[Rfam]
RNA sequence: UCCCCACUCAUGUUUGUAGGACCCCAAAGGAUCACCAUUAAAGUUGGUAUAGAUCUAUAAAAAAGUUAUCACAUGUCUGUGAGACUUGACUUUUCUAUAGAUCUGUGCCAAAUUUAAUGGUGAUCAUUUGGGGUCCUAUACACAUCGGUGAGAA
Numbered sequence: 001u002c003c004c005c006a007c008u009c010a011u012g013u014u015u016g017u018a019g020g021a022c023c024c025c026a027a028a029g030g031a032u033c034a035c036c037a038u039u040a041a042a043g044u045u046g047g048u049a050u051a052g053a054u055c056u057a058u059a060a061a062a063a064a065g066u067u068a069u070c071a072c073a074u075g076u077c078u079g080u081g082a083g084a085c086u087u088g089a090c091u092u093u094u095c096u097a098u099a100g101a102u103c104u105g106u107g108c109c110a111a112a113u114u115u116a117a118u119g120g121u122g123a124u125c126a127u128u129u130g131g132g133g134u135c136c137u138a139u140a141c142a143c144a145u146c147g148g149u150g151a152g153a154a
Stems, first nucleotide, its partner, number of pairs: 003152001005150004010145004015140014030125003034121009044111016061094008069082005

A member of the RNA family "MIR8565 microRNA precursor family" from Amborella trichopoda, 154 nucleotides long. The family's consensus secondary structure was predicted with RNAalifold. Gene Ontology terms of the family: RISC complex and miRNA-mediated post-transcriptional gene silencing.